[Rfam]
RNA sequence: GUGCGCUCUCAGCUUUGAGAACUGAAUUCCAUGGGUUGUAACUGCACCCGCUGCCAGACCCGUGGGGCUCAGUUCUUCAGCUGGGGGGCUUCUG
Numbered sequence: 001g002u003g004c005g006c007u008c009u010c011a012g013c014u015u016u017g018a019g020a021a022c023u024g025a026a027u028u029c030c031a032u033g034g035g036u037u038g039u040a041a042c043u044g045c046a047c048c049c050g051c052u053g054c055c056a057g058a059c060c061c062g063u064g065g066g067g068c069u070c071a072g073u074u075c076u077u078c079a080g081c082u083g084g085g086g087g088g089c090u091u092c093u094g
Stems, first nucleotide, its partner, number of pairs: 008085002011082003018076008033061004